[Rfam]
RNA: U4 spliceosomal RNA
Organism: Chauna torquata
RNA sequence: AGCUUUGUGCAGUGGCAGUAUCGUAGCCCAUGAGGUUCAGCUGAGGCAUGAUUAUUGCUGGUUGAAAACUAUGAUUUCUUUCUCUUCACCUGGAUGAACUUGGCUUAAGCAGGCAACAGUUGGGUCUUAGGUGGCAGA
Numbered sequence: 001a002g003c004u005u006u007g008u009g010c011a012g013u014g015g016c017a018g019u020a021u022c023g024u025a026g027c028c029c030a031u032g033a034g035g036u037u038c039a040g041c042u043g044a045g046g047c048a049u050g051a052u053u054a055u056u057g058c059u060g061g062u063u064g065a066a067a068a069c070u071a072u073g074a075u076u077u078c079u080u081u082c083u084c085u086u087c088a089c090c091u092g093g094a095u096g097a098a099c100u101u102g103g104c105u106u107a108a109g110c111a112g113g114c115a116a117c118a119g120u121u122g123g124g125u126c127u128u129a130g131g132u133g134g135c136a137g138a
Stems, first nucleotide, its partner, number of pairs: 020052005026047003034042003083138003086134008